[Rfam]
RNA sequence: UAGCUUUGUUCUAAGUCAAACACCUCUAACUGAACAAGUUUUUAGAAAAACAGAUUAACAUCUAAAAGCUCAAAUAAGUGCACUAUCAAGACAUUAUUUAAUAAAACUAAUUGAUGUUGUAGAUGCUGAUGCAUUUUCUUUAAACCUGGUUAAAUUUGGAGAAGUUUGACUUAGGACAAAGCUAA
Numbered sequence: 001u002a003g004c005u006u007u008g009u010u011c012u013a014a015g016u017c018a019a020a021c022a023c024c025u026c027u028a029a030c031u032g033a034a035c036a037a038g039u040u041u042u043u044a045g046a047a048a049a050a051c052a053g054a055u056u057a058a059c060a061u062c063u064a065a066a067a068g069c070u071c072a073a074a075u076a077a078g079u080g081c082a083c084u085a086u087c088a089a090g091a092c093a094u095u096a097u098u099u100a101a102u103a104a105a106a107c108u109a110a111u112u113g114a115u116g117u118u119g120u121a122g123a124u125g126c127u128g129a130u131g132c133a134u135u136u137u138c139u140u141u142a143a144a145c146c147u148g149g150u151u152a153a154a155u156u157u158g159g160a161g162a163a164g165u166u167u168g169a170c171u172u173a174g175g176a177c178a179a180a181g182c183u184a185a
Base pairs, nucleotide, nucleotide: 005180006179007178008177009176011174012173013172014171015170016169017168018167019166020165021164024161025160026159031153033151034150044139045138046137047136048135049134054130055129057127059125060124061123062122063121064120066118070114071113072112073111075110

About this RNA:
The family of this 185-nucleotide RNA from Miscanthus lutarioriparius is "MIR1435 microRNA precursor family". The family's consensus secondary structure was predicted with RNAalifold.